[Rfam]
RNA sequence: AAAACCUAUAGAGGAGCUUUUAGUAAGAGUAAAUAAGUGAGCAGGCAUGCGAUGACCUUAUUGAAAGGAUAUAAAAGCCGAAACUUUUAUAAUGGCAAUUAUAAGAGUUGGUAGAAAAACAUAAAAGAUUUCUACUCUUUGGUAAAACCAUUGGUGCUAUAGAAUUA
Numbered sequence: 001a002a003a004a005c006c007u008a009u010a011g012a013g014g015a016g017c018u019u020u021u022a023g024u025a026a027g028a029g030u031a032a033a034u035a036a037g038u039g040a041g042c043a044g045g046c047a048u049g050c051g052a053u054g055a056c057c058u059u060a061u062u063g064a065a066a067g068g069a070u071a072u073a074a075a076a077g078c079c080g081a082a083a084c085u086u087u088u089a090u091a092a093u094g095g096c097a098a099u100u101a102u103a104a105g106a107g108u109u110g111g112u113a114g115a116a117a118a119a120c121a122u123a124a125a126a127g128a129u130u131u132c133u134a135c136u137c138u139u140u141g142g143u144a145a146a147a148c149c150a151u152u153g154g155u156g157c158u159a160u161a162g163a164a165u166u167a
Base pairs, nucleotide, nucleotide: 006162007161008160009159010158011157016078017077018076019075020074021073023070024069032062033061034060035059036058037057039056082109083108084107085106086105087104088103089102090101091100092099093098110136111135112134113133114132115131116130118129120127
Lysine riboswitch aptamer: a 167-nucleotide RNA sequence from Mycoplasmopsis glycophila.
The base pairs follow the family's consensus structure, which is taken from published work.